[Rfam]
RNA: mir-2774 microRNA precursor family
Organism: Bombyx mori
RNA sequence: AAAAAAAUCAGACCGUCGGUCUACCGAGCAAUAUCACCCACCCGGUGGAAGAUUUUUUAAUUUUUUU
Numbered sequence: 001a002a003a004a005a006a007a008u009c010a011g012a013c014c015g016u017c018g019g020u021c022u023a024c025c026g027a028g029c030a031a032u033a034u035c036a037c038c039c040a041c042c043c044g045g046u047g048g049a050a051g052a053u054u055u056u057u058u059a060a061u062u063u064u065u066u067u
Stems, first nucleotide, its partner, number of pairs: 004064003010058003015053003020049007028041001